RNA sequence: AUGAACGCAAGGGGAGAGACUGUUAAGAAAACAGCGCCGAAGGAGCAAACUUAUUGUAAGUGAAUCUCUCAGGCAAAAGAACUCUUGCUGGACG
Dot-bracket structure: ......(((((((......((((.......)))).(((((..(((...((((.....))))....))))).))).......)))))))......